[Rfam]
RNA sequence: ACUGUGGAGUAUCAUAUCAAAUGCGAGUAGCUUUUAUGGCAAAAGCAGAUACGUUGAAACAGUAA
Numbered sequence: 001a002c003u004g005u006g007g008a009g010u011a012u013c014a015u016a017u018c019a020a021a022u023g024c025g026a027g028u029a030g031c032u033u034u035u036a037u038g039g040c041a042a043a044a045g046c047a048g049a050u051a052c053g054u055u056g057a058a059a060c061a062g063u064a065a
Stems, first nucleotide, its partner, number of pairs: 001063005009052005022047003030040003
Dot-bracket structure: (((((...(((((........(((.....(((.....)))....))))))))......)))))..
Source information: A member of the RNA family "RAGATH-18 RNA", 65 nucleotides long. The family's consensus secondary structure is taken from published work. About the family: Actinobacteria, Firmicutes, Fusobacteria, Thermotogae (1 example). It is annotated as a small RNA.